[Rfam]
RNA sequence: ACAAGUUACAAUCCCGAUAGGAUUCAGUGGAAUCGUUCCGCUGGAGAUGCCUUGUAACCGAUAAAUAGUAGGGGGACUACAUAAUG
Number, nucleotide and partner (000 for none) at each position: 001a000002c000003a000004a000005g000006u000007u000008a000009c000010a000011a000012u076013c075014c074015c073016g000017a000018u000019a052020g051021g050022a000023u045024u044025c043026a042027g041028u040029g039030g038031a000032a000033u000034c000035g000036u000037u000038c030039c029040g028041c027042u026043g025044g024045a023046g000047a000048u000049g000050c021051c020052u019053u000054g000055u000056a000057a000058c072059c071060g000061a000062u000063a000064a000065a000066u000067a000068g000069u000070a000071g059072g058073g015074g014075g013076a012077c000078u000079a000080c000081a000082u000083a000084a000085u000086g000

The family of this 86-nucleotide RNA from Amylolactobacillus amylophilus is "SAM-III riboswitch aptamer (SMK box)". Gene Ontology terms of the family: regulation of translational initiation and methionine adenosyltransferase activity. Lineage of the source: Bacteria > Bacillati > Lactobacillales > Lactobacillaceae > Amylolactobacillus amylophilus.